The family of this 139-nucleotide sequence is "DUF3800-I RNA".
The base pairs follow the family's consensus structure, which is taken from published work.
Actinobacteria, Firmicutes, Fusobacteria, Proteobacteria (1 example), Tenericutes (2 examples).
RNA sequence: UAUAAGUGCAGGUAGAAAUACGCUGUUUACUCGUGUAAUCGAAUUGACGUUUAAGCGAACUGUAAGCUCGCCGACCAUGAGGCCGUAAUAACACCCCUAGAAGUAGUCGCCUGAUCAACGAUGAAACUAGGGGUGUUUU
Numbered sequence: 001u002a003u004a005a006g007u008g009c010a011g012g013u014a015g016a017a018a019u020a021c022g023c024u025g026u027u028u029a030c031u032c033g034u035g036u037a038a039u040c041g042a043a044u045u046g047a048c049g050u051u052u053a054a055g056c057g058a059a060c061u062g063u064a065a066g067c068u069c070g071c072c073g074a075c076c077a078u079g080a081g082g083c084c085g086u087a088a089u090a091a092c093a094c095c096c097c098u099a100g101a102a103g104u105a106g107u108c109g110c111c112u113g114a115u116c117a118a119c120g121a122u123g124a125a126a127c128u129a130g131g132g133g134u135g136u137u138u139u
Base pairs, nucleotide, nucleotide: 008026009025010024011023012021013020014019030081031080032079033078034077035076039074040073041072042051043050044049055071056070057069058068060066094133095132096131097130098129099128100127

The sequence is in the family's curated seed alignment.